Rfam assigns this 75-nucleotide RNA from Silurus meridionalis to the family "mir-153 microRNA precursor family". On this family, see Chen et al., Genes Dev 2005: "The developmental miRNA profiles of zebrafish as determined by small RNA cloning". NCBI's taxonomy places the organism under Eukaryota, Chordata, Euteleostomi, Osteoglossocephalai, Silurus. Rfam 15.1 lists 1,565 matches to the family in 711 species. It scores 75 bits against the family's covariance model. Gene Ontology terms of the family: miRNA-mediated post-transcriptional gene silencing and RISC complex.
RNA sequence: GCCAGUGUCAUUUUUGUGCUAAUGCAGCUUGUGCACACUGACUCCAGUUGCAUAGUCACAAAAGUGAUCACUGAC
Numbered sequence: 001g002c003c004a005g006u007g008u009c010a011u012u013u014u015u016g017u018g019c020u021a022a023u024g025c026a027g028c029u030u031g032u033g034c035a036c037a038c039u040g041a042c043u044c045c046a047g048u049u050g051c052a053u054a055g056u057c058a059c060a061a062a063a064g065u066g067a068u069c070a071c072u073g074a075c
Stems, first nucleotide, its partner, number of pairs: 003073005008067011020055001023052007